[Rfam]
RNA sequence: UUACUGGCGGUCUCUAAUUCGCUUGGUGCAGGUCGGGAACCGCUUUACCCUGCUUUGCCGUGUCUGGGCCUAUGAGCUAGGUGGCUCGAUGUAAUCGGCCACGGGGCAAAACGGGUCCCGCCUUGCAUCAACUGAAUCCGAGACCGCGGUGAAG
Numbered sequence: 001u002u003a004c005u006g007g008c009g010g011u012c013u014c015u016a017a018u019u020c021g022c023u024u025g026g027u028g029c030a031g032g033u034c035g036g037g038a039a040c041c042g043c044u045u046u047a048c049c050c051u052g053c054u055u056u057g058c059c060g061u062g063u064c065u066g067g068g069c070c071u072a073u074g075a076g077c078u079a080g081g082u083g084g085c086u087c088g089a090u091g092u093a094a095u096c097g098g099c100c101a102c103g104g105g106g107c108a109a110a111a112c113g114g115g116u117c118c119c120g121c122c123u124u125g126c127a128u129c130a131a132c133u134g135a136a137u138c139c140g141a142g143a144c145c146g147c148g149g150u151g152a153a154g
Stems, first nucleotide, its partner, number of pairs: 013141002017137004023131010034120005040114002
RNA: MIR168 microRNA precursor family